[Rfam]
RNA sequence: GGCGAUAAACUGCCGAUGCAAUAAACCUAUCGGACCCGGGGGCGGUACCCGGCGCCUCCACCAAAAACCGCUCGACCAAAGCGGCUUUUGCUGGGGGCGAAACAGGAUCGACGAGGGUGUAAAGAUCGGACUUUCGCUCGGCAUUGUACCACCGUUAUCGGGCUAACCUAGUAGUUGCAAACGACAACUAUGCGGAAGCACGUCUCGCUGCGUAA
Numbered sequence: 001g002g003c004g005a006u007a008a009a010c011u012g013c014c015g016a017u018g019c020a021a022u023a024a025a026c027c028u029a030u031c032g033g034a035c036c037c038g039g040g041g042g043c044g045g046u047a048c049c050c051g052g053c054g055c056c057u058c059c060a061c062c063a064a065a066a067a068c069c070g071c072u073c074g075a076c077c078a079a080a081g082c083g084g085c086u087u088u089u090g091c092u093g094g095g096g097g098c099g100a101a102a103c104a105g106g107a108u109c110g111a112c113g114a115g116g117g118u119g120u121a122a123a124g125a126u127c128g129g130a131c132u133u134u135c136g137c138u139c140g141g142c143a144u145u146g147u148a149c150c151a152c153c154g155u156u157a158u159c160g161g162g163c164u165a166a167c168c169u170a171g172u173a174g175u176u177g178c179a180a181a182c183g184a185c186a187a188c189u190a191u192g193c194g195g196a197a198g199c200a201c202g203u204c205u206c207g208c209u210g211c212g213u214a215a
Base pairs, nucleotide, nucleotide: 001138002137003136004135005134014128015127016126017125026117027116028115030114031113032112036052037051038050039049040048053099054098055097056096057095058094059093139154140153141152
RNA: permuted transfer-messenger RNA